RNA sequence: GCAGGAGAGGUUCGCAAACUCCCUCUAUAAAAAACUAACGCGCU
Numbered sequence: 001g002c003a004g005g006a007g008a009g010g011u012u013c014g015c016a017a018a019c020u021c022c023c024u025c026u027a028u029a030a031a032a033a034a035c036u037a038a039c040g041c042g043c044u
Stems, first nucleotide, its partner, number of pairs: 006026005016036001

A member of the RNA family "PreQ1 (pre queuosine) riboswitch aptamer" from Paenibacillus sp. NFR01, 44 nucleotides long.
This family is a bacterial riboswitch that binds to the metabolite preQ1, an intermediate in the biosynthesis of the modified nucleoside queuosine from GTP. One example of this riboswitch is located in the leader of the Bacillus subtilis ykvJKLM (queCDEF) operon which encodes four genes necessary for queuosine production. PreQ1 binding to the riboswitch aptamer is thought to induce premature transcription termination within the leader to down-regulate expression of these genes.
A search with the family's covariance model found it, with a score of 46 bits.
The family has 43 seed sequences and 873 matches in Rfam 15.1.
Lineage of the source: Bacteria > Bacillati > Bacilli > Paenibacillaceae > Paenibacillus.